Small nucleolar RNA SNORD89: a 114-nucleotide RNA from Oryctolagus cuniculus.
snoRNA HBII-289 belongs to the family of C/D snoRNAs. It is the human orthologue of the mouse MBII-289 and has no identified RNA target.
The source organism's lineage runs through Eukaryota, Chordata, Glires, Leporidae and Oryctolagus.
Rfam classes the family as a C/D-box small nucleolar RNA.
Pairs were carried over by alignment from the consensus structure, which was predicted with RNAalifold.
RNA sequence: ACUGAGGAAUGAUGACAAUAAAAGGCCGAAUUGCAGUGUCUCCGUUAACAGUUGGCUCUCUGUGGGCACACGAUGACAAAAUCUCCCGAAGCGAACCACCGGUCUGACCUCAGU
Number, nucleotide and partner (000 for none) at each position: 001a114002c113003u112004g111005a110006g109007g108008a000009a000010u000011g000012a000013u000014g104015a103016c102017a000018a000019u000020a000021a000022a000023a000024g000025g034026c033027c000028g000029a000030a000031u000032u000033g026034c025035a000036g099037u098038g097039u000040c000041u094042c093043c091044g000045u089046u088047a000048a000049c000050a000051g071052u070053u000054g000055g067056c066057u065058c064059u000060c000061u000062g000063u000064g058065g057066g056067c055068a000069c000070a052071c051072g085073a084074u000075g082076a000077c000078a000079a000080a000081a000082u075083c000084u073085c072086c000087c000088g046089a045090a000091g043092c000093g042094a041095a000096c000097c038098a037099c036100c000101g000102g016103u015104c014105u000106g000107a000108c007109c006110u005111c004112a003113g002114u001